[Rfam]
Nucleotides: 117
Base pairs, nucleotide, nucleotide: 028055029054030053031052032051034043035042036041086102087101088100089099090098091097
Number, partner (000 for none) and nucleotide at each position: 001000a002000u003000u004000a005000c006000u007000g008000c009000a010000a011000u012000c013000a014000a015000u016000a017000u018000a019000c020000c021000g022000g023000a024000g025000a026000c027000a028055g029054u030053a031052a032051c033000u034043g035042g036041a037000g038000a039000a040000a041036u042035c043034c044000u045000u046000a047000a048000u049000u050000u051032g052031u053030u054029a055028c056000c057000g058000a059000g060000g061000u062000g063000a064000u065000a066000u067000u068000g069000u070000c071000a072000a073000a074000u075000g076000a077000a078000a079000u080000u081000g082000a083000c084000a085000a086102g087101c088100u089099c090098u091097c092000c093000u094000c095000g096000u097091g098090a099089g100088a101087g102086c103000u104000u105000u106000u107000a108000u109000a110000a111000c112000g113000u114000g115000u116000a117000u
The record is a 117-nucleotide sequence from Intestinibaculum porci, which matches "Ribosomal protein L10 leader" in Rfam. Pairs were carried over by alignment from the consensus structure, which was predicted with CMfinder. For this family Rfam cites "Ribosomal protein L10(L12)4 autoregulates expression of the Bacillus subtilis rplJL operon by a transcription attenuation mechanism" (Yakhnin et al., Nucleic Acids Res, 2015). The organism belongs to Intestinibaculum, within Bacteria. This family is a putative r-protein leader autoregulatory structure found in B. subtilis and other low-GC Gram-positive bacteria. It is located in the 5' untranslated regions of mRNAs encoding ribosomal proteins L10 and L12 (rplJ-rplL). A Rho-independent transcription terminator structure that is probably involved in regulation is included at the 3' end. Its family is annotated with regulation of gene expression in the Gene Ontology.